[Rfam]
RNA sequence: AAUAUUUGAGGUGGGAAAGGUUUCCCACGCGCUUAUCGUUAUGAUAAGUUACCAGAUAUCAGAAUUGCCGCCCUGCUAAUAAU
Numbered sequence: 001a002a003u004a005u006u007u008g009a010g011g012u013g014g015g016a017a018a019g020g021u022u023u024c025c026c027a028c029g030c031g032c033u034u035a036u037c038g039u040u041a042u043g044a045u046a047a048g049u050u051a052c053c054a055g056a057u058a059u060c061a062g063a064a065u066u067g068c069c070g071c072c073c074u075g076c077u078a079a080u081a082a083u
Base pairs, nucleotide, nucleotide: 001083003081004080005079006078008076011028012027013026014025015024019069020068021067030055031049032048033047034046035045036044037043038042060075061074062073
The family of this 83-nucleotide RNA sequence from Solibacillus sp. R5-41 is "skipping-rope RNA". A search with the family's covariance model found it, with a score of 47 bits. Lineage of the source: Bacteria > Bacillota > Caryophanales > Caryophanaceae > Solibacillus. Rfam classes the family as a small RNA.